[Rfam]
RNA sequence: ACACGAGAGAGGAGGUGGUCCUAAGUUGUAUAGCUAUCGGACUCGUGAGGUGACUGUCCGCUAGUCGCCGUUCUCUCGGACUUCGUAUGCCGAGGCCGCGUGACACUCACGUGUGACGGUGACGCGGCGAAACCCAGGCAGUUACCCGACCCCCGGGGCGCCGGCCUAGUCCAGCCGGUGCUGCGCUCCACAGUGUGCGCAGAACCCCGGGGGUCGAACCAU
Numbered sequence: 001a002c003a004c005g006a007g008a009g010a011g012g013a014g015g016u017g018g019u020c021c022u023a024a025g026u027u028g029u030a031u032a033g034c035u036a037u038c039g040g041a042c043u044c045g046u047g048a049g050g051u052g053a054c055u056g057u058c059c060g061c062u063a064g065u066c067g068c069c070g071u072u073c074u075c076u077c078g079g080a081c082u083u084c085g086u087a088u089g090c091c092g093a094g095g096c097c098g099c100g101u102g103a104c105a106c107u108c109a110c111g112u113g114u115g116a117c118g119g120u121g122a123c124g125c126g127g128c129g130a131a132a133c134c135c136a137g138g139c140a141g142u143u144a145c146c147c148g149a150c151c152c153c154c155g156g157g158g159c160g161c162c163g164g165c166c167u168a169g170u171c172c173a174g175c176c177g178g179u180g181c182u183g184c185g186c187u188c189c190a191c192a193g194u195g196u197g198c199g200c201a202g203a204a205c206c207c208c209g210g211g212g213g214u215c216g217a218a219c220c221a222u
Base pairs, nucleotide, nucleotide: 014058015057016056017055018054019053059129060128061127062126065122066121067120069118070117071116147216148215149214150213151212152211153210154209155208156207157206158205160179161178162177163176164175165174

Record summary:
The family of this 222-nucleotide RNA sequence from Natronosporangium hydrolyticum is "Actinobacteria sRNA Ms_IGR-5". The match comes from Rfam's covariance-model search (94 bits). The organism belongs to Natronosporangium, within Bacteria.